[Rfam]
RNA: ZMP/ZTP riboswitch aptamer (pfl RNA motif)
Organism: Paenibacillus xerothermodurans
RNA sequence: AGGACCCGGUGUAACUGGCGACGAGUGGGUGUAACCACAGUGGAGCAUUGGGGCAUACGGCCGGUCGCCUGGGCAAAGAGC
Number, nucleotide and partner (000 for none) at each position: 001a000002g000003g054004a000005c052006c051007c050008g049009g048010u047011g046012u045013a000014a000015c042016u000017g069018g068019c067020g066021a065022c000023g000024a000025g038026u037027g036028g035029g000030u000031g000032u000033a000034a000035c028036c027037a026038c025039a000040g000041u000042g015043g000044a000045g012046c011047a010048u009049u008050g007051g006052g005053g000054c003055a000056u000057a000058c000059g000060g074061c073062c072063g000064g000065u021066c020067g019068c018069c017070u000071g000072g062073g061074c060075a000076a000077a000078g000079a000080g000081c000